[Rfam]
A member of the RNA family "ACEA small nucleolar RNA U3" from Paramecium tetraurelia, 241 nucleotides long. Taxonomically the source falls in Paramecium (Eukaryota, Sar, Ciliophora, Peniculida). From the family's description: Small nucleolar RNAs (snoRNAs) are involved in the processing and modification of rRNA in the nucleolus. There are two main classes of snoRNAs: the box C/D class, and the box H/ACA class.
RNA sequence: AAGACUGUACUCGUACAGGAUCAUGUCUAUAGUAGUUACUUACACUUUGCUUCAGCAAAUGUAGGCAACCAACCAAGCUAGAAUGAUUCAGCAUGCACUCUGAUCUAUAAUUAGGAAUAUGAAUCCAUUCUAUUUCAUGGAAUGCGAUUCGCGAUGCCCAUCCAUAUUUGUUGUGCCCUAAUAUUCUUUAUGGAUAUUGGAGCCUUCAAAUAUGUGAAGAUUUGAGUGUGUCUGACUAGCU
Dot-bracket structure: (((..(.((((......(.(...).)....)))))...))).....((((((((.....)).))))))........(((((..............(((((.(((((.....(.(......(((..(.................)...))).......).)......(.(........................................).).....))))).))))).......))))).
Numbered sequence: 001a002a003g004a005c006u007g008u009a010c011u012c013g014u015a016c017a018g019g020a021u022c023a024u025g026u027c028u029a030u031a032g033u034a035g036u037u038a039c040u041u042a043c044a045c046u047u048u049g050c051u052u053c054a055g056c057a058a059a060u061g062u063a064g065g066c067a068a069c070c071a072a073c074c075a076a077g078c079u080a081g082a083a084u085g086a087u088u089c090a091g092c093a094u095g096c097a098c099u100c101u102g103a104u105c106u107a108u109a110a111u112u113a114g115g116a117a118u119a120u121g122a123a124u125c126c127a128u129u130c131u132a133u134u135u136c137a138u139g140g141a142a143u144g145c146g147a148u149u150c151g152c153g154a155u156g157c158c159c160a161u162c163c164a165u166a167u168u169u170g171u172u173g174u175g176c177c178c179u180a181a182u183a184u185u186c187u188u189u190a191u192g193g194a195u196a197u198u199g200g201a202g203c204c205u206u207c208a209a210a211u212a213u214g215u216g217a218a219g220a221u222u223u224g225a226g227u228g229u230g231u232c233u234g235a236c237u238a239g240c241u
Stems, first nucleotide, its partner, number of pairs: 001041003006035001008034004018026001020024001047068006053061002077240005096228005102222005112160001114158001121150003126144001167212001169210001

On this family, see Zwieb, Nucleic Acids Res 1997: "The uRNA database".